Record summary: This 114-nucleotide RNA from Gouania willdenowi belongs to the Rfam family "Potassium channel RNA editing signal". About the family: This family represents a group of sequences related to the human potassium channel Kv1.1 hairpin element which directs the efficient modification of an adenosine to inosine by an adenosine deaminase acting on RNA (ADAR). The ADAR modification causes an isoleucine/valine recoding event which lies in the ion-conducting pore of the potassium channel. It is thought that this editing event targets the process of fast inactivation and allows a more rapid recovery from inactivation at negative potentials. On this family, see Bhalla et al., Nat Struct Mol Biol 2004: "Control of human potassium channel inactivation by editing of a small mRNA hairpin". The base pairs follow the family's consensus structure, which is taken from published work.
RNA sequence: GUUGGCUAUGGCGAUAUGGUCCCAACGACAAUUGGCGGCAAAAUAGUGGGUUCCCUCUGCGCCAUUGCUGGAGUGUUGACCAUUGCGUUACCCGUGCCCGUCAUAGUGUCCAAC
Numbered sequence: 001g002u003u004g005g006c007u008a009u010g011g012c013g014a015u016a017u018g019g020u021c022c023c024a025a026c027g028a029c030a031a032u033u034g035g036c037g038g039c040a041a042a043a044u045a046g047u048g049g050g051u052u053c054c055c056u057c058u059g060c061g062c063c064a065u066u067g068c069u070g071g072a073g074u075g076u077u078g079a080c081c082a083u084u085g086c087g088u089u090a091c092c093c094g095u096g097c098c099c100g101u102c103a104u105a106g107u108g109u110c111c112a113a114c
Base pairs, nucleotide, nucleotide: 001114002113004111005110007108008107009106011104013102014101015100018097021094037077038076039075040074049063050062051061